[Rfam]
Shown here is a 138-nucleotide sequence from Actinoplanes sp. OR16, a member of the family "c-di-AMP riboswitch aptamer (ydaO/yuaA leader)".
RNA sequence: GCCGAGCCACCGCCUAAUCACCGAAAGGUGAGCCGGGGACCCAGGUAGUCCCGGGGUGAAGCCGCUCCCCCCGAGCGGCCGGGCAGCUUCCCGCCCGAACCCGUCAGCUAACCCGGUCGGCGGCGAGUGGGAAGAAAG
Numbered sequence: 001g002c003c004g005a006g007c008c009a010c011c012g013c014c015u016a017a018u019c020a021c022c023g024a025a026a027g028g029u030g031a032g033c034c035g036g037g038g039a040c041c042c043a044g045g046u047a048g049u050c051c052c053g054g055g056g057u058g059a060a061g062c063c064g065c066u067c068c069c070c071c072c073g074a075g076c077g078g079c080c081g082g083g084c085a086g087c088u089u090c091c092c093g094c095c096c097g098a099a100c101c102c103g104u105c106a107g108c109u110a111a112c113c114c115g116g117u118c119g120g121c122g123g124c125g126a127g128u129g130g131g132a133a134g135a136a137a138g
Base pairs, nucleotide, nucleotide: 011122012121013120014119018031019030020029032117033116034115035114036113037112042053054102055101056100062078063077064076065075081096082095083094084093